[Rfam]
RNA sequence: CCUCGUGGCCCUCUCUCCCAACCCUCGUACCAGUGCUUCACCUAAGACCCUGGUACAGGUGUGGGGGAUAGGGACCGGGGA
Numbered sequence: 001c002c003u004c005g006u007g008g009c010c011c012u013c014u015c016u017c018c019c020a021a022c023c024c025u026c027g028u029a030c031c032a033g034u035g036c037u038u039c040a041c042c043u044a045a046g047a048c049c050c051u052g053g054u055a056c057a058g059g060u061g062u063g064g065g066g067g068a069u070a071g072g073g074a075c076c077g078g079g080g081a
Stems, first nucleotide, its partner, number of pairs: 010072003014068005022059002027056006